[Rfam]
Nucleotides: 057
Stems, first nucleotide, its partner, number of pairs: 001020006010056004034047005
Number, partner (000 for none) and nucleotide at each position: 001020u002019c003018g004017g005016g006015a007000a008000a009000c010056c011055a012054g013053c014000c015006u016005c017004c018003c019002g020001a021000a022000u023000c024000c025000u026000c027000a028000c029000g030000g031000a032000u033000a034047g035046a036045u037044g038043g039000u040000g041000u042000c043038c044037c045036a046035u047034c048000c049000a050000a051000g052000u053013g054012c055011u056010g057000a